The record is an 86-nucleotide RNA from Streptococcus phage Javan14, which matches "S. pyogenes small RNA 779816" in Rfam. The family's consensus secondary structure was predicted with RNAalifold. On this family, see Le Rhun et al., RNA Biol 2016: "RNA sequencing uncovers antisense RNAs and novel small RNAs in Streptococcus pyogenes". It scores 75 bits against the family's covariance model.
RNA sequence: AGAAAGCGAGCCAUUUAAUGCUUGUUUCUUAUACUAGAUUCGCCUCACGCUCAGACUCGCCAAAGUUUGAGAGCGUGGGGCUUUUU
Numbered sequence: 001a002g003a004a005a006g007c008g009a010g011c012c013a014u015u016u017a018a019u020g021c022u023u024g025u026u027u028c029u030u031a032u033a034c035u036a037g038a039u040u041c042g043c044c045u046c047a048c049g050c051u052c053a054g055a056c057u058c059g060c061c062a063a064a065g066u067u068u069g070a071g072a073g074c075g076u077g078g079g080g081c082u083u084u085u086u
Stems, first nucleotide, its partner, number of pairs: 005026007042081011053068005